[Rfam]
RNA sequence: AGGGUAAUAUAUCAAUUGGCAGAUUACUUGCUUUGGGAGCAUGAGGUUGUGGGUUCGAGUCCCGCUUACCCUA
Numbered sequence: 001a002g003g004g005u006a007a008u009a010u011a012u013c014a015a016u017u018g019g020c021a022g023a024u025u026a027c028u029u030g031c032u033u034u035g036g037g038a039g040c041a042u043g044a045g046g047u048u049g050u051g052g053g054u055u056c057g058a059g060u061c062c063c064g065c066u067u068a069c070c071c072u073a
Stems, first nucleotide, its partner, number of pairs: 001072007011024003027043001029041003049065005
Rfam assigns this 73-nucleotide sequence from Mucilaginibacter paludis to the family "tRNA". Gene Ontology term of the family: triplet codon-amino acid adaptor activity. About the family: Transfer RNA (tRNA) molecules are approximately 80 nucleotides in length. It is annotated as a transfer RNA. It scores 56 bits against the family's covariance model.